[Rfam]
RNA sequence: GCUUACUUCAUUGGGGAGUAGCCUCUAUUUACGCAAAGUAAAUAGGUGAUGAUCAACAUAAUUGCUCAACAGAGCAUGGUCAUCAUAGCUUAAACGCUUCCAAGCGUUCCAGAGUUGGCAAGACCUUUGAUUUAUCGUUCUGCACUUUUUGGCUAGCAGGAGCGAUAGGUC
Numbered sequence: 001g002c003u004u005a006c007u008u009c010a011u012u013g014g015g016g017a018g019u020a021g022c023c024u025c026u027a028u029u030u031a032c033g034c035a036a037a038g039u040a041a042a043u044a045g046g047u048g049a050u051g052a053u054c055a056a057c058a059u060a061a062u063u064g065c066u067c068a069a070c071a072g073a074g075c076a077u078g079g080u081c082a083u084c085a086u087a088g089c090u091u092a093a094a095c096g097c098u099u100c101c102a103a104g105c106g107u108u109c110c111a112g113a114g115u116u117g118g119c120a121a122g123a124c125c126u127u128u129g130a131u132u133u134a135u136c137g138u139u140c141u142g143c144a145c146u147u148u149u150u151g152g153c154u155a156g157c158a159g160g161a162g163c164g165a166u167a168g169g170u171c
Stems, first nucleotide, its partner, number of pairs: 026044003046086010063076005